[Rfam]
Notes: A member of the RNA family "U1 spliceosomal RNA" from Callithrix jacchus, 161 nucleotides long. U1 is a small nuclear RNA (snRNA) component of the spliceosome (involved in pre-mRNA splicing). Its 5' end forms complementary base pairs with the 5' splice junction, thus defining the 5' donor site of an intron. NCBI's taxonomy places the organism under Eukaryota, Gnathostomata, Simiiformes, Platyrrhini, Callithrix.
RNA sequence: AUUAUUAUCUCCAGGGGAGAUACCAUGAUGAUGAAAGUGGUUUUCCCAGUGAGGCUUAUCCAUUGCACCCCGGAUGUGCUGACCCCUGCAAUUUCCCCAAAUGUGAGGAACUCGACUGCAUAAUUUGUGGUAGUGGGGGACUGUGUUCGUGCUUUCCCCUG
Numbered sequence: 001a002u003u004a005u006u007a008u009c010u011c012c013a014g015g016g017g018a019g020a021u022a023c024c025a026u027g028a029u030g031a032u033g034a035a036a037g038u039g040g041u042u043u044u045c046c047c048a049g050u051g052a053g054g055c056u057u058a059u060c061c062a063u064u065g066c067a068c069c070c071c072g073g074a075u076g077u078g079c080u081g082a083c084c085c086c087u088g089c090a091a092u093u094u095c096c097c098c099a100a101a102u103g104u105g106a107g108g109a110a111c112u113c114g115a116c117u118g119c120a121u122a123a124u125u126u127g128u129g130g131u132a133g134u135g136g137g138g139g140a141c142u143g144u145g146u147u148c149g150u151g152c153u154u155u156c157c158c159c160u161g
Base pairs, nucleotide, nucleotide: 012118013117014116015047016046017045018044019043020042022041023040024039025038026037048087049084051083053080054079055078057076058075059074060073061072089114091112092110093109094108097105135160136159137158138157139156140155143152144151145150
It is annotated as a spliceosomal small nuclear RNA. For this family Rfam cites "Two functionally distinct steps mediate high affinity binding of U1A protein to U1 hairpin II RNA" (Katsamba et al., J Biol Chem, 2001).